Y RNA: a 93-nucleotide RNA from Carlito syrichta. Taxonomically the source falls in Carlito (Eukaryota, Opisthokonta, Craniata, Teleostomi). From the family's description: Y RNAs are components of the Ro ribonucleoprotein particle (Ro RNP), in association with Ro60 and La proteins. The Y RNAs and Ro60 and La proteins are well conserved, but the function of the Ro RNP is not known. In humans the RNA component can be one of four small RNAs -- hY1, hY3, hY4 and hY5. These small RNAs are predicted to fold into a conserved secondary structure containing three stem structures. The largest of the four, hY1, contains an additional hairpin. This family includes a significant number of annotated pseudogenes and the model is expected to discriminate poorly between real and Y RNA related pseudogenes. The base pairs follow the family's consensus structure, which is taken from published work.
RNA sequence: GGCUGGUCCAGGGGCAGUGGUGUUUGCAACUACUGAUCACAACCAGUUAUUUGUUUCUUCUCCAUUCCCAUUGCUUCACUUUACUAGCCUAAA
Numbered sequence: 001g002g003c004u005g006g007u008c009c010a011g012g013g014g015c016a017g018u019g020g021u022g023u024u025u026g027c028a029a030c031u032a033c034u035g036a037u038c039a040c041a042a043c044c045a046g047u048u049a050u051u052u053g054u055u056u057c058u059u060c061u062c063c064a065u066u067c068c069c070a071u072u073g074c075u076u077c078a079c080u081u082u083a084c085u086a087g088c089c090u091a092a093a
Base pairs, nucleotide, nucleotide: 001089002088003087004086005085006084007083010081011080014077016072017071018070019069020068022067028055029054030053032051
A search with the family's covariance model found it, with a score of 53 bits. It is annotated as a non-coding RNA gene.